Rfam assigns this 206-nucleotide RNA from Streptomyces actuosus to the family "Streptomyces RNA 1601". It scores 191 bits against the family's covariance model. From the family's description: Identified by deep sequencing of transcriptome at the end of exponential growth phase. Appears longer on northern blot than sequencing transcript. Streptomyces specific. The organism belongs to Streptomyces, within Bacteria. On this family, see Vockenhuber et al., RNA Biol 2011: "Deep sequencing-based identification of small non-coding RNAs in Streptomyces coelicolor".

RNA sequence: GACGACCGGCCGGACAUCUCAUGUGUACGGCCCACAAGUGGAGGCUCCGAUCUCCCACCUGACCGUCCCCCGGGACGGCGGGUCACCGGUCAGGCGGCCACCAUCGUUCCGUACGGACGAUGGAGCCGCCCGAAAGCGCCCCGCGGUCUCCGCGGCGGUGCUCCGGAUGUAUGGAGCCCCGCCUGUGAUCGUCCGGGGCAUUUUUU
Numbered sequence: 001g002a003c004g005a006c007c008g009g010c011c012g013g014a015c016a017u018c019u020c021a022u023g024u025g026u027a028c029g030g031c032c033c034a035c036a037a038g039u040g041g042a043g044g045c046u047c048c049g050a051u052c053u054c055c056c057a058c059c060u061g062a063c064c065g066u067c068c069c070c071c072g073g074g075a076c077g078g079c080g081g082g083u084c085a086c087c088g089g090u091c092a093g094g095c096g097g098c099c100a101c102c103a104u105c106g107u108u109c110c111g112u113a114c115g116g117a118c119g120a121u122g123g124a125g126c127c128g129c130c131c132g133a134a135a136g137c138g139c140c141c142c143g144c145g146g147u148c149u150c151c152g153c154g155g156c157g158g159u160g161c162u163c164c165g166g167a168u169g170u171a172u173g174g175a176g177c178c179c180c181g182c183c184u185g186u187g188a189u190c191g192u193c194c195g196g197g198g199c200a201u202u203u204u205u206u
Stems, first nucleotide, its partner, number of pairs: 004091006012028001029084005035061002038058004042053002063078006093130005101123008138199006144191003151187003154183005160177005
Dot-bracket structure: ...((((((..(...............)(((((.((.((((((........)).)))).)).((((((....)))))).))))).)))))).(((((...((((((((.......))))))))..))))).......(((((((((....((((((((.(((((........))))).))))).))).)))..)))))).......